[Rfam]
RNA: Small nucleolar RNA R64/Z200 family
RNA sequence: AUUCUGUUGUGAUGAAUUAUGAAAAAUUUCACAUGUCAGACUUCAGAGAUUUUGCUCAACGAUCCAUGAGAAGAAACUUCAUUUUUCUGAGUAGAAA
Numbered sequence: 001a002u003u004c005u006g007u008u009g010u011g012a013u014g015a016a017u018u019a020u021g022a023a024a025a026a027u028u029u030c031a032c033a034u035g036u037c038a039g040a041c042u043u044c045a046g047a048g049a050u051u052u053u054g055c056u057c058a059a060c061g062a063u064c065c066a067u068g069a070g071a072a073g074a075a076a077c078u079u080c081a082u083u084u085u086u087c088u089g090a091g092u093a094g095a096a097a
Stems, first nucleotide, its partner, number of pairs: 002096006048064004